[Rfam]
RNA sequence: AAUAACUAAUAAUUCAAUUAGUCAAAUGAUGGAGUAACGUCCUGAAGGGCUAACUAUGAUACCCCGAAUAGCAUGGAAAUCAGUAACAAUUGAAGUGUUAUAAGCUCGGUAAGGUCGGCUGAGAUUUAUCCCUAGUAUUAUUAUAUAUAAUAAUAAGGAAAUGCGAACUAGAGGUAGUCGAGAUAAAGAUAGGUCGGUAGUCUAUAAA
Numbered sequence: 001a002a003u004a005a006c007u008a009a010u011a012a013u014u015c016a017a018u019u020a021g022u023c024a025a026a027u028g029a030u031g032g033a034g035u036a037a038c039g040u041c042c043u044g045a046a047g048g049g050c051u052a053a054c055u056a057u058g059a060u061a062c063c064c065c066g067a068a069u070a071g072c073a074u075g076g077a078a079a080u081c082a083g084u085a086a087c088a089a090u091u092g093a094a095g096u097g098u099u100a101u102a103a104g105c106u107c108g109g110u111a112a113g114g115u116c117g118g119c120u121g122a123g124a125u126u127u128a129u130c131c132c133u134a135g136u137a138u139u140a141u142u143a144u145a146u147a148u149a150a151u152a153a154u155a156a157g158g159a160a161a162u163g164c165g166a167a168c169u170a171g172a173g174g175u176a177g178u179c180g181a182g183a184u185a186a187a188g189a190u191a192g193g194u195c196g197g198u199a200g201u202c203u204a205u206a207a208a
Base pairs, nucleotide, nucleotide: 018053019052020051021050022049023048031043032042034040054200055199056198057197064109065108066107067106068101069100070099071098072097073096074095078091079090080089116196117195118194119193120192125187126186127185128184129183130182131158132157133156139153162181164180165179167178168177169176170175
Rfam assigns this 208-nucleotide RNA sequence from Candidatus Epulonipiscioides saccharophilum to the family "Group II catalytic intron D1-D4-5".
Lineage of the source: Bacteria > Clostridia > Lachnospirales > Lachnospiraceae > Candidatus Epulonipiscioides.
Rfam describes the family as follows. Group II introns are found in rRNA, tRNA and mRNA of organelles in fungi, plants and protists, and also in mRNA in bacteria.
The pairing is the family consensus, mapped onto this sequence.